RNA sequence: CGGUGAUAUCUCCUUACCGUUAUCAACGGAGGUACUCGGUCAUGCUGUGGGUUGGCUCAACCUUAGACGUAGAUCGUCGAGAGUGUGACGUGAGGAGAGGUUAGAUGCCUC
Numbered sequence: 001c002g003g004u005g006a007u008a009u010c011u012c013c014u015u016a017c018c019g020u021u022a023u024c025a026a027c028g029g030a031g032g033u034a035c036u037c038g039g040u041c042a043u044g045c046u047g048u049g050g051g052u053u054g055g056c057u058c059a060a061c062c063u064u065a066g067a068c069g070u071a072g073a074u075c076g077u078c079g080a081g082a083g084u085g086u087g088a089c090g091u092g093a094g095g096a097g098a099g100g101u102u103a104g105a106u107g108c109c110u111c
Base pairs, nucleotide, nucleotide: 001019002018003017004016007034008033009032010031011030012029013028035094036093037092038091039089040088041087042086043085044084045083046082049063050062051061052060053059054058066078067077068076069075097111098110099109100108101107

A member of the RNA family "epsC RNA" from Paenibacillus tyrphae, 111 nucleotides long. Rfam classes the family as a cis-regulatory element. Lineage of the source: Bacteria > Bacillota > Caryophanales > Paenibacillaceae > Paenibacillus. The family's consensus secondary structure is taken from published work.